[Rfam]
RNA sequence: GUUGCUUCACGACUGGAAGAAUGGCCGAUGAUAAAGGUUUGGUCAUCCUGUAGAGAGAAGCAUAGAUUGAAUUUGGACCAGAAUUAAACAGCAUGGCGCUUUACUAACCCGCGUCAAUGUUACCUGUCUCCUGGCACAUUG
Numbered sequence: 001g002u003u004g005c006u007u008c009a010c011g012a013c014u015g016g017a018a019g020a021a022u023g024g025c026c027g028a029u030g031a032u033a034a035a036g037g038u039u040u041g042g043u044c045a046u047c048c049u050g051u052a053g054a055g056a057g058a059a060g061c062a063u064a065g066a067u068u069g070a071a072u073u074u075g076g077a078c079c080a081g082a083a084u085u086a087a088a089c090a091g092c093a094u095g096g097c098g099c100u101u102u103a104c105u106a107a108c109c110c111g112c113g114u115c116a117a118u119g120u121u122a123c124c125u126g127u128c129u130c131c132u133g134g135c136a137c138a139u140u141g
Base pairs, nucleotide, nucleotide: 003062004061005060006059007058008057017049019047022045023044024043025042026041078134079133080132081131083129090121091120092119094116095115096114097113098112
Record summary
Shown here is a 141-nucleotide sequence from Oryza sativa, a member of the family "small nucleolar RNA snoR137". A reference for the family is Chen and Wu (2009), "Mining small RNA sequencing data: a new approach to identify small nucleolar RNAs in Arabidopsis", Nucleic Acids Res. Rfam links the family to the GO terms RNA processing and nucleolus. Rfam 15.1 lists 808 matches to the family in 221 species.